Record summary:
The family of this 74-nucleotide RNA from Bos taurus is "mir-363 microRNA precursor family". The literature on the family includes a 2010 paper in BMC Genomics by Linsen et al., "Small RNA expression and strain specificity in the rat". The organism belongs to Bos, within Eukaryota. Its family is annotated with miRNA-mediated post-transcriptional gene silencing and RISC complex in the Gene Ontology.
RNA sequence: UGUUGUCGGGUGGAUCACGAUGCAAUUUUGAUUAGUAUAAUAGGAGAAAAAUUGCACGGUAUCCAUCUGCGAAC
Numbered sequence: 001u002g003u004u005g006u007c008g009g010g011u012g013g014a015u016c017a018c019g020a021u022g023c024a025a026u027u028u029u030g031a032u033u034a035g036u037a038u039a040a041u042a043g044g045a046g047a048a049a050a051a052u053u054g055c056a057c058g059g060u061a062u063c064c065a066u067c068u069g070c071g072a073a074c
Base pairs, nucleotide, nucleotide: 007069008068009067010066011065012064013063014062015061017060018059021056022055023054024053025052026051027050028049029048